[Rfam]
RNA sequence: CUCUUAUAAAGAGCGGUGGAGGGACGAGCCCUUUGAAACCCGGCAACCGGCUAUCAUAUAGCACGGUGCUAAAUCUUGCAGCUGCAAUGCUGAAGGAUAAGAG
Number, nucleotide and partner (000 for none) at each position: 001c103002u102003c101004u100005u099006a098007u097008a000009a000010a000011g000012a000013g041014c000015g040016g039017u038018g000019g000020a000021g031022g030023g029024a000025c078026g077027a076028g075029c023030c022031c021032u000033u000034u000035g000036a000037a000038a017039c016040c015041c013042g070043g069044c068045a067046a000047c066048c065049g000050g062051c061052u060053a000054u000055c000056a000057u000058a000059u000060a052061g051062c050063a000064c000065g048066g047067u045068g044069c043070u042071a000072a000073a000074u095075c028076u027077u026078g025079c092080a091081g090082c089083u000084g000085c000086a000087a000088u000089g082090c081091u080092g079093a000094a000095g074096g000097a007098u006099a005100a004101g003102a002103g001
The record is a 103-nucleotide RNA from Metabacillus lacus, which matches "SAM riboswitch aptamer (S box leader)" in Rfam. The match comes from Rfam's covariance-model search (80 bits).